[Rfam]
RNA sequence: AAUUUGUAGUGGAGAGGGUUUUAUCUCAUCAUAAAAAUUAAGGAUGAGAUUCAACUCCUCCAACUGCAGGCG
Numbered sequence: 001a002a003u004u005u006g007u008a009g010u011g012g013a014g015a016g017g018g019u020u021u022u023a024u025c026u027c028a029u030c031a032u033a034a035a036a037a038u039u040a041a042g043g044a045u046g047a048g049a050u051u052c053a054a055c056u057c058c059u060c061c062a063a064c065u066g067c068a069g070g071c072g
Base pairs, nucleotide, nucleotide: 007066008065009064010062011061012060013059014058016057017056024048026047027046028045029044030043
RNA: mir-1175 microRNA precursor family
Organism: Mytilus coruscus